Rfam assigns this 84-nucleotide sequence from Mytilus galloprovincialis to the family "Small nucleolar RNA SNORD70". The family has 21 seed sequences and 1,085 matches in Rfam 15.1. Pairs were carried over by alignment from the consensus structure. The family's RNA type in Rfam is C/D-box small nucleolar RNA. Taxonomically the source falls in Mytilus (Eukaryota, Lophotrochozoa, Bivalvia, Autobranchia). snoRNA HBII-234 belongs to the C/D family of snoRNAs. It is the human orthologue of the mouse MBII-234 and is predicted to guide 2'O-ribose methylation of the small 18S rRNA on position A512.

[Rfam]
RNA sequence: UACUGUGCUGUAAAUGAUGAUUUCAUAGUUCAACUGAUUUUCAGUGAAAGACAAAUUUUCGCCCCUAACUGAUACAGCAAAGUU
Numbered sequence: 001u002a003c004u005g006u007g008c009u010g011u012a013a014a015u016g017a018u019g020a021u022u023u024c025a026u027a028g029u030u031c032a033a034c035u036g037a038u039u040u041u042c043a044g045u046g047a048a049a050g051a052c053a054a055a056u057u058u059u060c061g062c063c064c065c066u067a068a069c070u071g072a073u074a075c076a077g078c079a080a081a082g083u084u
Base pairs, nucleotide, nucleotide: 002083003082004081006079007078008077009076010075011074012073